[Rfam]
Source information:
Shown here is a 64-nucleotide RNA sequence from Halalkalibacterium halodurans, a member of the family "Bacillaceae-1 RNA". The base pairs follow the family's consensus structure, which is taken from published work. Rfam's curators put it in the seed alignment. NCBI's taxonomy places the organism under Bacteria, Bacilli, Caryophanales, Bacillaceae, Halalkalibacterium (ex Joshi et al. 2022).
RNA sequence: GGAAAAGGAACCACGCUAAGGGCGUGACAUCGUGUCACAACGCCUGGUACCUACAUCCUGUAGG
Numbered sequence: 001g002g003a004a005a006a007g008g009a010a011c012c013a014c015g016c017u018a019a020g021g022g023c024g025u026g027a028c029a030u031c032g033u034g035u036c037a038c039a040a041c042g043c044c045u046g047g048u049a050c051c052u053a054c055a056u057c058c059u060g061u062a063g064g
Stems, first nucleotide, its partner, number of pairs: 010048004015043002024038005050064005